[Rfam]
RNA sequence: UGAAAUAAUGUAGGUAAGGGAAGUCGGCAAAAUAGAUUCGUAACUUUGGGAAAAGAAUUGGCUCUUGAGAUGUAGAUAUUCGGGUAUCAUGUAUUCAAUGGUUAUUUAAUUAAUAUAAAAUGAAUACUAGUAAUAGUUAUUUGAUUUAUAUUUAUUGAUAAUCAUUAACAUAAUACUUACAAAUAUUUGAAAUAUAAUAUUUUAACGAAUAUCAUUUUAUAUACAUUAAUCAAGAACUGGCACGGACAAGAGGAAUCCGACUGUCUAAUUAAAACAGAGGAGACAGAUGAUGCUAGAUGCAUGUAGACUGUGUCUGAUUUCUGCCCAGUGCAAUGAAUGUUAUCAUUGGGAAACCAAUUGAAGCUCUUGUAAACGGCGGGAGUAACUAUGACUCUCUUAAGGUAGCCAAAUGCCUCGUCGGGUAAUUUCCGACGCGCACGAAUGGAUUAACGAGAUUCCUACUGUCCCUAUCUACCAUUCAGCGAAAUCACAGCCAAGGGAACGGGCUUGGCAAA
Numbered sequence: 001u002g003a004a005a006u007a008a009u010g011u012a013g014g015u016a017a018g019g020g021a022a023g024u025c026g027g028c029a030a031a032a033u034a035g036a037u038u039c040g041u042a043a044c045u046u047u048g049g050g051a052a053a054a055g056a057a058u059u060g061g062c063u064c065u066u067g068a069g070a071u072g073u074a075g076a077u078a079u080u081c082g083g084g085u086a087u088c089a090u091g092u093a094u095u096c097a098a099u100g101g102u103u104a105u106u107u108a109a110u111u112a113a114u115a116u117a118a119a120a121u122g123a124a125u126a127c128u129a130g131u132a133a134u135a136g137u138u139a140u141u142u143g144a145u146u147u148a149u150a151u152u153u154a155u156u157g158a159u160a161a162u163c164a165u166u167a168a169c170a171u172a173a174u175a176c177u178u179a180c181a182a183a184u185a186u187u188u189g190a191a192a193u194a195u196a197a198u199a200u201u202u203u204a205a206c207g208a209a210u211a212u213c214a215u216u217u218u219a220u221a222u223a224c225a226u227u228a229a230u231c232a233a234g235a236a237c238u239g240g241c242a243c244g245g246a247c248a249a250g251a252g253g254a255a256u257c258c259g260a261c262u263g264u265c266u267a268a269u270u271a272a273a274a275c276a277g278a279g280g281a282g283a284c285a286g287a288u289g290a291u292g293c294u295a296g297a298u299g300c301a302u303g304u305a306g307a308c309u310g311u312g313u314c315u316g317a318u319u320u321c322u323g324c325c326c327a328g329u330g331c332a333a334u335g336a337a338u339g340u341u342a343u344c345a346u347u348g349g350g351a352a353a354c355c356a357a358u359u360g361a362a363g364c365u366c367u368u369g370u371a372a373a374c375g376g377c378g379g380g381a382g383u384a385a386c387u388a389u390g391a392c393u394c395u396c397u398u399a400a401g402g403u404a405g406c407c408a409a410a411u412g413c414c415u416c417g418u419c420g421g422g423u424a425a426u427u428u429c430c431g432a433c434g435c436g437c438a439c440g441a442a443u444g445g446a447u448u449a450a451c452g453a454g455a456u457u458c459c460u461a462c463u464g465u466c467c468c469u470a471u472c473u474a475c476c477a478u479u480c481a482g483c484g485a486a487a488u489c490a491c492a493g494c495c496a497a498g499g500g501a502a503c504g505g506g507c508u509u510g511g512c513a514a515a
Base pairs, nucleotide, nucleotide: 001481002480003479004478010475011474012473013472014471015470016469018467019466020465035059036058037057038056039055044049060238061237063235064234065233066232067231068230069227070226071225072224073223075213076212077211078210079209080208081207082206084176085175086174089171090170091169097166098165099164100163102161103160104159105158107157108156109155110154112152113151114150115149116148117147118146119145121143122142123141124140125139126137127136128135129134239243251460252459253458254457255456256455257454258452259451262276263275264274279315280314281313283311284310285309286308290302291301292300293299319446320445321444323377324376325375328374329373330370331369332368333367335366339364340363345358346357347356348355349354378396379395380394381393382392383391397401417433418432419431420430421429422428494511495510496509497508498507
Eukaryotic large subunit ribosomal RNA: a 515-nucleotide part of an RNA from Strongyloides ratti. On this family, see Cannone et al., BMC Bioinformatics 2002: "The comparative RNA web (CRW) site: an online database of comparative sequence and structure information for ribosomal, intron, and other RNAs". The family is grouped with related families in Rfam's "LSU clan". The base pairs follow the family's consensus structure, which is taken from published work. NCBI's taxonomy places the organism under Eukaryota, Metazoa, Protostomia, Strongyloididae, Strongyloides.